[Rfam]
RNA: Plant signal recognition particle RNA
Organism: Microthlaspi erraticum
RNA sequence: GUCGAGUUCAGUAACGCGGGCUUGUGAUCCGAGUGGAGACAAUAAUGUGAUGGGACAUUGGGUCGAUUUCACUGGGCUGGGUUCGGGUUGGGCUUUCUACUGGCCUGCCCAUUCCAAGUCGGGAGUUGAGGGUUCGGUCUCGAGCGAAGGCUUGUGGUUCGGACUCUCUUAGAGCGGAGGAGACUGCGUGAGGCUGGUUUCACAGAGCAGCGUCCACCUCCCUCUUUCGACGGUGGAAGGAUUACGGGCCGGUGCCUUCCGAGCCCACUAUGACCCAAUGAGCCGAUUCCAAUUGGACCAUCAUUUUU
Numbered sequence: 001g002u003c004g005a006g007u008u009c010a011g012u013a014a015c016g017c018g019g020g021c022u023u024g025u026g027a028u029c030c031g032a033g034u035g036g037a038g039a040c041a042a043u044a045a046u047g048u049g050a051u052g053g054g055a056c057a058u059u060g061g062g063u064c065g066a067u068u069u070c071a072c073u074g075g076g077c078u079g080g081g082u083u084c085g086g087g088u089u090g091g092g093c094u095u096u097c098u099a100c101u102g103g104c105c106u107g108c109c110c111a112u113u114c115c116a117a118g119u120c121g122g123g124a125g126u127u128g129a130g131g132g133u134u135c136g137g138u139c140u141c142g143a144g145c146g147a148a149g150g151c152u153u154g155u156g157g158u159u160c161g162g163a164c165u166c167u168c169u170u171a172g173a174g175c176g177g178a179g180g181a182g183a184c185u186g187c188g189u190g191a192g193g194c195u196g197g198u199u200u201c202a203c204a205g206a207g208c209a210g211c212g213u214c215c216a217c218c219u220c221c222c223u224c225u226u227u228c229g230a231c232g233g234u235g236g237a238a239g240g241a242u243u244a245c246g247g248g249c250c251g252g253u254g255c256c257u258u259c260c261g262a263g264c265c266c267a268c269u270a271u272g273a274c275c276c277a278a279u280g281a282g283c284c285g286a287u288u289c290c291a292a293u294u295g296g297a298c299c300a301u302c303a304u305u306u307u308u
Stems, first nucleotide, its partner, number of pairs: 001040003004023006028037003044307002047304007056295002058292003061288005069281003073277004078272001079266008090257003094254001100252008109240002112238005118231008128168010138157002141154005169174001176221005186213004194205003